[Rfam]
About this RNA
Rfam assigns this 179-nucleotide RNA from Halobacillus salinus to the family "Lysine riboswitch aptamer". NCBI's taxonomy places the organism under Bacteria, Bacilli, Caryophanales, Bacillaceae, Halobacillus. The match comes from Rfam's covariance-model search (112 bits).

RNA sequence: AGUAAGGAUAGAGGUGCGACAACCAUCAGUAAGCAUGAGGAGGAGAAUGAGAUCCUUGGAUUCAUGUGGAAAGGGGAAGUCGCCGAAGUGGACGGAAUCUCAUGUUCCGAAAGCUGGUUCUUCGAUUGAACAGAUCGGGGACUGUCAUAUAGGAAACUAUAUGGAGGGCUAUCUUACGC
Numbered sequence: 001a002g003u004a005a006g007g008a009u010a011g012a013g014g015u016g017c018g019a020c021a022a023c024c025a026u027c028a029g030u031a032a033g034c035a036u037g038a039g040g041a042g043g044a045g046a047a048u049g050a051g052a053u054c055c056u057u058g059g060a061u062u063c064a065u066g067u068g069g070a071a072a073g074g075g076g077a078a079g080u081c082g083c084c085g086a087a088g089u090g091g092a093c094g095g096a097a098u099c100u101c102a103u104g105u106u107c108c109g110a111a112a113g114c115u116g117g118u119u120c121u122u123c124g125a126u127u128g129a130a131c132a133g134a135u136c137g138g139g140g141a142c143u144g145u146c147a148u149a150u151a152g153g154a155a156a157c158u159a160u161a162u163g164g165a166g167g168g169c170u171a172u173c174u175u176a177c178g179c
Base pairs, nucleotide, nucleotide: 006174007173008172009171010170011169016083017082018081019080020079023076024075033067034066035065036064037063038062039061087115088114089113093109094108095107096106097105098104116143117142118141119140120139121138122137124136125135126134127133145164146163147162148161149160150159151158
Dot-bracket structure: .....((((((....(((((..((........(((((((.....................))))))).......))..)))))...(((...((((((.....))))))...)))(((((((.((((.....))))))))))).(((((((......)))))))....)))))).....